[Rfam]
RNA sequence: CCGGUCACGUCCCCUUAUCACUUUUCCAGCCCAGCGUUGUCACUCCGAGUGCUGGACGGAGAACUGAUAAGGGUGGGUGGCCGA
Numbered sequence: 001c002c003g004g005u006c007a008c009g010u011c012c013c014c015u016u017a018u019c020a021c022u023u024u025u026c027c028a029g030c031c032c033a034g035c036g037u038u039g040u041c042a043c044u045c046c047g048a049g050u051g052c053u054g055g056a057c058g059g060a061g062a063a064c065u066g067a068u069a070a071g072g073g074u075g076g077g078u079g080g081c082c083g084a
Stems, first nucleotide, its partner, number of pairs: 012073009022063006030055002
RNA: mir-184 microRNA precursor family